[Rfam]
RNA sequence: CUCUUAUUCAGAACCACGAGAUGAGGAUCGAUGAAGUGGUGGCAACCCUUAGAAAAGAAGGUGCCUUUACCUAGCAAGUUUACUUGAACAAUAAGAG
Numbered sequence: 001c002u003c004u005u006a007u008u009c010a011g012a013a014c015c016a017c018g019a020g021a022u023g024a025g026g027a028u029c030g031a032u033g034a035a036g037u038g039g040u041g042g043c044a045a046c047c048c049u050u051a052g053a054a055a056a057g058a059a060g061g062u063g064c065c066u067u068u069a070c071c072u073a074g075c076a077a078g079u080u081u082a083c084u085u086g087a088a089c090a091a092u093a094a095g096a097g
Base pairs, nucleotide, nucleotide: 001097002096003095004094005093006092007091008090013040014039015038016037017036020029021028022027025072026070041065042064043063044062046061047060048057049056050055075086076085077084078083
SAM riboswitch aptamer (S box leader): a 97-nucleotide sequence from Longibaculum muris. A search with the family's covariance model found it, with a score of 54 bits. Pairs were carried over by alignment from the consensus structure, which is taken from published work. Taxonomically the source falls in Longibaculum (Bacteria, Erysipelotrichia, Erysipelotrichales, Coprobacillaceae).